RNA: Pseudomonas sRNA P26
Organism: Ferrimonas sediminicola
Nucleotides: 064
Base pairs, nucleotide, nucleotide: 016035017034018033022029023028038063039062040061041060042059043058044057045056046055047054
Number, partner (000 for none) and nucleotide at each position: 001000a002000c003000c004000u005000a006000u007000a008000g009000c010000u011000u012000a013000c014000g015000a016035g017034c018033c019000u020000a021000g022029g023028c024000u025000a026000c027000g028023g029022c030000u031000u032000a033018g034017g035016u036000a037000a038063g039062g040061c041060u042059g043058g044057u045056g046055g047054u048000u049000a050000u051000u052000u053000a054047a055046c056045c057044a058043c059042c060041g061040g062039c063038c064000u